[Rfam]
RNA sequence: UUUGAUCGAACCGAGCCACAGCGGCCGGUCGCGCCGCUGCCCGUAGGCUGCCAGGAGUGCCUGGGCCUC
Numbered sequence: 001u002u003u004g005a006u007c008g009a010a011c012c013g014a015g016c017c018a019c020a021g022c023g024g025c026c027g028g029u030c031g032c033g034c035c036g037c038u039g040c041c042c043g044u045a046g047g048c049u050g051c052c053a054g055g056a057g058u059g060c061c062u063g064g065g066c067c068u069c
Stems, first nucleotide, its partner, number of pairs: 015025003032065001034063001035059002037054003041050001043048001
Record summary: Rfam assigns this 69-nucleotide sequence from Actinomadura verrucosospora to the family "ASpks TB sRNA". It is annotated as an antisense RNA. The base pairs follow the family's consensus structure, which is taken from published work.